[Rfam]
RNA: mir-9195 microRNA precursor family
RNA sequence: AGAGGCCCUCUGUGGCCAGGGUGGAACGCUUGCCUCGUCACCAGAGCGACAAAGCAAGCAUUCCACCAGGCUGCUCACGCUGCCUGC
Number, nucleotide and partner (000 for none) at each position: 001a000002g000003a000004g084005g083006c082007c000008c000009u000010c000011u000012g074013u073014g072015g071016c070017c069018a000019g000020g067021g066022u065023g064024g063025a062026a061027c000028g059029c058030u057031u056032g055033c054034c000035u000036c000037g050038u049039c048040a000041c046042c000043a000044g000045a000046g041047c000048g039049a038050c037051a000052a000053a000054g033055c032056a031057a030058g029059c028060a000061u026062u025063c024064c023065a022066c021067c020068a000069g017070g016071c015072u014073g013074c012075u000076c000077a000078c000079g000080c000081u000082g006083c005084c004085u000086g000087c000